[Rfam]
RNA sequence: CACGGUCGCCCCUUUACUCGGAUCGUCCGGCACGUUCCUGCCGGUGAAGGGAAUCA
Number, nucleotide and partner (000 for none) at each position: 001c000002a000003c000004g000005g000006u000007c000008g000009c000010c051011c050012c049013u048014u047015u046016a045017c000018u000019c000020g000021g000022a000023u000024c000025g000026u000027c044028c043029g042030g041031c040032a039033c000034g000035u000036u000037c000038c000039u032040g031041c030042c029043g028044g027045u016046g015047a014048a013049g012050g011051g010052a000053a000054u000055c000056a000

Rfam assigns this 56-nucleotide RNA from Streptomyces sp. TS71-3 to the family "msiK RNA". The organism belongs to Streptomyces, within Bacteria. The family's consensus secondary structure is taken from published work.